RNA sequence: ACACGACAAUACUAAACCAUCCGCGAGGAUGGGACGGAAAGCCCACAGGGUCUCAACGAGACAGCCGGGUCGCCGAA
Numbered sequence: 001a002c003a004c005g006a007c008a009a010u011a012c013u014a015a016a017c018c019a020u021c022c023g024c025g026a027g028g029a030u031g032g033g034a035c036g037g038a039a040a041g042c043c044c045a046c047a048g049g050g051u052c053u054c055a056a057c058g059a060g061a062c063a064g065c066c067g068g069g070u071c072g073c074c075g076a077a
Stems, first nucleotide, its partner, number of pairs: 012037002017032006041070003046067001048066002050062003
c-di-GMP-I riboswitch aptamer: a 77-nucleotide RNA from Geobacter sp. OR-1. The base pairs follow the family's consensus structure, which is taken from published work. It scores 44 bits against the family's covariance model. The organism belongs to Geobacter, within Bacteria.